[Rfam]
RNA sequence: GGCCAGGGGGAAAGAAAAAAUACAGGCUAAAACAUCUAGUAUGGGCAAGCAGGGAGCUAGAACGAUUUGCACUUAACCCUAACC
Numbered sequence: 001g002g003c004c005a006g007g008g009g010g011a012a013a014g015a016a017a018a019a020a021u022a023c024a025g026g027c028u029a030a031a032a033c034a035u036c037u038a039g040u041a042u043g044g045g046c047a048a049g050c051a052g053g054g055a056g057c058u059a060g061a062a063c064g065a066u067u068u069g070c071a072c073u074u075a076a077c078c079c080u081a082a083c084c
Stems, first nucleotide, its partner, number of pairs: 001084002005080004

HIV gag stem loop 3 (GSL3): an 84-nucleotide RNA from Lentivirus humimdef1. For this family Rfam cites "RNA interactions in the 5' region of the HIV-1 genome" (Damgaard et al., J Mol Biol, 2004). Lineage of the source: Viruses > Pararnavirae > Orthoretrovirinae > Lentivirus > Lentivirus humimdef1. Rfam describes the family as follows. This family consists of several HIV gag stem loop 3 (GSL3) sequences. GSL3 is known to direct specific packaging of HIV-1 genomic RNA. Deletion of GSL3 leads to decreases in both viral RNA packaging and dimerisation. Rfam links the family to the GO term viral RNA genome packaging. By type it is a cis-regulatory element.